The family of this 166-nucleotide sequence from Enterococcus sulfureus is "M-box riboswitch aptamer (ykoK leader)". Its family is annotated with regulation of gene expression and response to magnesium ion in the Gene Ontology. Rfam describes the family as follows. M-box riboswitch, also know as ykoK leader is described as a metaloregulatory RNA that sense divalent metals and function as a genetic control element of genes related to divalent metal transport in bacteria. It was first reported upstream of the B.subtilis ykoK gene and genes with related functions in other bacteria.
[Rfam]
RNA sequence: AAUAAAACUUGUUAGGUGAGGCUCCUAUACAAACACAAGCUAUUGUUCAGAAACGUCGAAAGACGCCAACGGAUGAAACAGAGAUUGUCGAAUUAAGGCUUUUUCAAAAUAGCUAAGGUUAUCCUUUACGUUGUAUAGUGCUAAAACUCGGACGAAGAGAUACGAU
Numbered sequence: 001a002a003u004a005a006a007a008c009u010u011g012u013u014a015g016g017u018g019a020g021g022c023u024c025c026u027a028u029a030c031a032a033a034c035a036c037a038a039g040c041u042a043u044u045g046u047u048c049a050g051a052a053a054c055g056u057c058g059a060a061a062g063a064c065g066c067c068a069a070c071g072g073a074u075g076a077a078a079c080a081g082a083g084a085u086u087g088u089c090g091a092a093u094u095a096a097g098g099c100u101u102u103u104u105c106a107a108a109a110u111a112g113c114u115a116a117g118g119u120u121a122u123c124c125u126u127u128a129c130g131u132u133g134u135a136u137a138g139u140g141c142u143a144a145a146a147c148u149c150g151g152a153c154g155a156a157g158a159g160a161u162a163c164g165a166u
Stems, first nucleotide, its partner, number of pairs: 006161001008159003011153002013096001015148003020142003025138008039113005045074004054065004081105004087099003115126003
Rfam 15.1 lists 1,095 matches to the family in 932 species. The pairing is the family consensus, mapped onto this sequence. For this family Rfam cites "New RNA motifs suggest an expanded scope for riboswitches in bacterial genetic control" (Barrick et al., Proc Natl Acad Sci U S A, 2004).